MIR2619 microRNA precursor family: a 172-nucleotide sequence from Medicago truncatula.
Pairs were carried over by alignment from the consensus structure, which was predicted with RNAalifold.
RNA sequence: AAACAGCCCCCUAUGUUUUGAUUCUUUGGCAGUUUUGAACUCCAAGGCAAAAAAAAAAAAAAUUGACACGUGGACGUGGCACCUCACUUAGGGUGCCACGUCAGCGUUGACCGAGUCAACAAUGGACUGGAGGUCCAAAACUGCCAAAGAAUCAAAACAUAGGGGGCUGUUU
Numbered sequence: 001a002a003a004c005a006g007c008c009c010c011c012u013a014u015g016u017u018u019u020g021a022u023u024c025u026u027u028g029g030c031a032g033u034u035u036u037g038a039a040c041u042c043c044a045a046g047g048c049a050a051a052a053a054a055a056a057a058a059a060a061a062a063u064u065g066a067c068a069c070g071u072g073g074a075c076g077u078g079g080c081a082c083c084u085c086a087c088u089u090a091g092g093g094u095g096c097c098a099c100g101u102c103a104g105c106g107u108u109g110a111c112c113g114a115g116u117c118a119a120c121a122a123u124g125g126a127c128u129g130g131a132g133g134u135c136c137a138a139a140a141c142u143g144c145c146a147a148a149g150a151a152u153c154a155a156a157a158c159a160u161a162g163g164g165g166g167c168u169g170u171u172u
Base pairs, nucleotide, nucleotide: 001172002171004169005168006167007166008165012161013160014159015158016157017156018155019154020153021152022151023150024149025148026147027146028145029144030143031142032141033140034139035138036137037136039134040132041131042130043129044128074101075100077098078097079096080095081094082093083092